[Rfam]
RNA sequence: CGUGCGCAACCGCUCAAUCCCGCAAGGGAGCCGGGGAACCACCUACUUGGGGUGAAUCGGGCAUCCUUCGCCCGCCAUGAUCGUGGCGGGCCCUGGAAGCUCGUAGGACACCUUCCUGUUCCGAACCCGUCAGCUAACCCGGUAGGCGAAGGAAGGAAAGGAG
Dot-bracket structure: ..........((((...(((......)))((((((....((......))(((.....((((......................................))))..(((...........)))...))).........)))))).))))...............
Source information:
The family of this 163-nucleotide RNA from Streptomyces sp. YIM 130001 is "c-di-AMP riboswitch aptamer (ydaO/yuaA leader)". NCBI's taxonomy places the organism under Bacteria, Bacillati, Kitasatosporales, Streptomycetaceae, Streptomyces.